[Rfam]
Ribosomal protein L20 leader: a 112-nucleotide RNA sequence from Lactobacillus delbrueckii.
The family's consensus secondary structure was predicted with CMfinder.
RNA sequence: GAGAACAAGAAGAAGCCCCCGCUUCUCGCCUAAGUUAUUUAACCUCUGGGCAAAUCGAUAUUUUCUGUUGAUUUUAAAGGCGGGUGCUAUAUGCCCGCCUUUUUCUUGUCCU
Numbered sequence: 001g002a003g004a005a006c007a008a009g010a011a012g013a014a015g016c017c018c019c020c021g022c023u024u025c026u027c028g029c030c031u032a033a034g035u036u037a038u039u040u041a042a043c044c045u046c047u048g049g050g051c052a053a054a055u056c057g058a059u060a061u062u063u064u065c066u067g068u069u070g071a072u073u074u075u076a077a078a079g080g081c082g083g084g085u086g087c088u089a090u091a092u093g094c095c096c097g098c099c100u101u102u103u104u105c106u107u108g109u110c111c112u
Base pairs, nucleotide, nucleotide: 011026012025013024014023015022016021028051029050030049033045034044035042036041079099080098081097082096083095084094085093086092

Notes: It is one of the family's seed sequences. Rfam classes the family as a cis-regulatory leader. For this family Rfam cites "Diverse mechanisms for regulating ribosomal protein synthesis in Escherichia coli" (Zengel and Lindahl, Prog Nucleic Acid Res Mol Biol, 1994). The source organism's lineage runs through Bacteria, Bacilli, Lactobacillaceae, Lactobacillus and Lactobacillus delbrueckii subsp. bulgaricus. This family is a putative r-protein leader autoregulatory structure found in B. subtilis and other low-GC Gram-positive bacteria. It is located in the 5' untranslated regions of mRNAs encoding initiation factor 3 followed by ribosomal proteins L35 and L20 (infC-rpmI-rplT). A Rho-independent transcription terminator structure that is probably involved in regulation is included at the 3' end.